[Rfam]
RNA sequence: CCUCUUUCAUUUCAGGGCCGAAGACCUUAUAUCAGGGCUGCUGGUUCGCCAGCUAUGGCAAUAAAUGGUCAGUGCAAUAAACCUAUCGGACCCGGGGGCGGUACCCGGCGCCUCCACCCAAGCCCAUGGGGCUAAGCUAUGGAAACUCCAUGGGUUUCGGCGGGGGCGAAAUAGGAUCGACGAGGGCGUAAAGACUGUGCUUUUGCUCGGCAUUGUACCACCGUUAUCGGGCUUUCUUAAUAGUUGCAAAUGACAACUAUGCUAUGGACAACGCUGUCGCAGCGUAACGCUGCGCCGGUAGUCCACUAAGUCCUUUGAGGUAGCACUCACGGGCGGGGUUCGGAGGCACCUGGCAACAGAAGCCUCCACU
Numbered sequence: 001c002c003u004c005u006u007u008c009a010u011u012u013c014a015g016g017g018c019c020g021a022a023g024a025c026c027u028u029a030u031a032u033c034a035g036g037g038c039u040g041c042u043g044g045u046u047c048g049c050c051a052g053c054u055a056u057g058g059c060a061a062u063a064a065a066u067g068g069u070c071a072g073u074g075c076a077a078u079a080a081a082c083c084u085a086u087c088g089g090a091c092c093c094g095g096g097g098g099c100g101g102u103a104c105c106c107g108g109c110g111c112c113u114c115c116a117c118c119c120a121a122g123c124c125c126a127u128g129g130g131g132c133u134a135a136g137c138u139a140u141g142g143a144a145a146c147u148c149c150a151u152g153g154g155u156u157u158c159g160g161c162g163g164g165g166g167c168g169a170a171a172u173a174g175g176a177u178c179g180a181c182g183a184g185g186g187c188g189u190a191a192a193g194a195c196u197g198u199g200c201u202u203u204u205g206c207u208c209g210g211c212a213u214u215g216u217a218c219c220a221c222c223g224u225u226a227u228c229g230g231g232c233u234u235u236c237u238u239a240a241u242a243g244u245u246g247c248a249a250a251u252g253a254c255a256a257c258u259a260u261g262c263u264a265u266g267g268a269c270a271a272c273g274c275u276g277u278c279g280c281a282g283c284g285u286a287a288c289g290c291u292g293c294g295c296c297g298g299u300a301g302u303c304c305a306c307u308a309a310g311u312c313c314u315u316u317g318a319g320g321u322a323g324c325a326c327u328c329a330c331g332g333g334c335g336g337g338g339u340u341c342g343g344a345g346g347c348a349c350c351u352g353g354c355a356a357c358a359g360a361a362g363c364c365u366c367c368a369c370u
Base pairs, nucleotide, nucleotide: 040053041052042051043050044049057207058206059205060204061203067200070197071196072195073194082186083185084184086183087182088181092108093107094106095105096104109168110167111166112165113164114163115162208223209222210221215232218230219229336351337350338349339348342367343366344365345364346363347362